[Rfam]
RNA: RAGATH-18 RNA
Organism: Bacillus cereus
RNA sequence: CCUGUGGAGUGUUAUAGCAAACUGUAGUAGCGAAUGAUUGGCGAGACAGGACACAUAGAAGCAGGAA
Numbered sequence: 001c002c003u004g005u006g007g008a009g010u011g012u013u014a015u016a017g018c019a020a021a022c023u024g025u026a027g028u029a030g031c032g033a034a035u036g037a038u039u040g041g042c043g044a045g046a047c048a049g050g051a052c053a054c055a056u057a058g059a060a061g062c063a064g065g066a067a
Base pairs, nucleotide, nucleotide: 001065002064003063004062005061009054010053011052012051013050022049023048024047030042031041034038